[Rfam]
RNA sequence: UAGAAGAAUGUAGAUAAGGGAAGUCGGCAAAAUAGAUCCGUAACUUCGGGAUAAGGAUUGGCUCUGAGGGUUGGGUCUAGGGGUUUGCGUUUUGACCUCUUGGGCGUUGCAAGGACUGCCUUCGGGUGGGCCUCGCUGGUCCCUUGAAUGAUGGGCGCAAAAUACCUAGGCGACGAACAACCGACUCAGAACUGGUACGGACAAGGGGAAUCCGACUGUUUAAUUAAAACAAAGCAAAGUGAUGGUCGUAAACCGAUGUUGACACUUUGUGAUUUCUGCCCAGUGCUCUGAAUGUCAAAGUGAAGAAAUUCAACCAAGCGCGGGUAAACGGCGGGAGUAACUAUGACUCUCUUAAGGUAGCCAAAUGCCUCGUCAUCUAAUUAGUGACGCGCAUGAAUGGAUUAACGAGAUUCCCACUGUCCCUAUCUACUAUCUAGCGAAACCACAGCCAAGGGAACGGGCUUGGAAGA
Number, nucleotide and partner (000 for none) at each position: 001u436002a435003g434004a433005a000006g000007a000008a000009u000010g430011u429012a428013g427014a426015u425016a424017a000018g422019g421020g420021a000022a000023g000024u000025c000026g000027g000028c000029a000030a000031a000032a000033u000034a000035g059036a058037u057038c056039c055040g000041u000042a000043a000044c049045u000046u000047c000048g000049g044050g000051a000052u000053a000054a000055g039056g038057a037058u036059u035060g193061g192062c000063u190064c189065u188066g187067a186068g185069g182070g181071u180072u179073g178074g000075g171076u170077c169078u168079a167080g166081g165082g000083g163084u161085u160086u159087g000088c157089g156090u155091u154092u000093u000094g000095a000096c000097c000098u147099c146100u000101u000102g143103g142104g141105c000106g000107u138108u000109g136110c135111a000112a133113g132114g131115a000116c129117u128118g127119c126120c125121u000122u000123c000124g000125g120126g119127u118128g117129g116130g000131c114132c113133u112134c000135g110136c109137u000138g107139g000140u000141c104142c103143c102144u000145u000146g099147a098148a000149u000150g000151a000152u000153g000154g091155g090156c089157g088158c000159a086160a085161a084162a000163u083164a000165c081166c080167u079168a078169g077170g076171c075172g000173a000174c000175g000176a000177a000178c073179a072180a071181c070182c069183g000184a000185c068186u067187c066188a065189g064190a063191a000192c061193u060194g198195g000196u000197a000198c194199g000200g000201a000202c000203a000204a000205g000206g415207g414208g413209a412210a411211u410212c409213c407214g406215a000216c000217u231218g230219u229220u000221u000222a000223a000224u000225u000226a000227a000228a000229a219230c218231a217232a000233a000234g270235c269236a268237a267238a266239g265240u264241g263242a000243u000244g000245g257246u256247c255248g254249u000250a000251a000252a000253c000254c248255g247256a246257u245258g000259u000260u000261g000262a000263c241264a240265c239266u238267u237268u236269g235270u234271g000272a000273u000274u401275u400276c399277u000278g332279c331280c330281c000282a000283g329284u328285g325286c324287u323288c322289u000290g321291a000292a000293u320294g319295u318296c000297a000298a000299a000300g000301u312302g311303a310304a309305g000306a000307a000308a000309u304310u303311c302312a301313a000314c000315c000316a000317a000318g295319c294320g293321c290322g288323g287324g286325u285326a000327a000328a284329c283330g280331g279332c278333g351334g350335g349336a348337g347338u346339a000340a000341c000342u000343a000344u000345g000346a338347c337348u336349c335350u334351c333352u356353u000354a000355a000356g352357g000358u000359a000360g000361c000362c000363a000364a000365a000366u000367g000368c000369c000370u000371c000372g388373u387374c386375a385376u384377c000378u000379a000380a000381u000382u000383a000384g376385u375386g374387a373388c372389g000390c000391g000392c000393a000394u000395g000396a000397a000398u000399g276400g275401a274402u000403u000404a000405a000406c214407g213408a000409g212410a211411u210412u209413c208414c207415c206416a000417c000418u000419g000420u020421c019422c018423c000424u016425a015426u014427c013428u012429a011430c010431u000432a000433u004434c003435u002436a001437g000438c000439g000440a000441a000442a000443c000444c000445a000446c000447a000448g000449c466450c465451a464452a463453g462454g000455g000456a000457a000458c000459g000460g000461g000462c453463u452464u451465g450466g449467a000468a000469g000470a000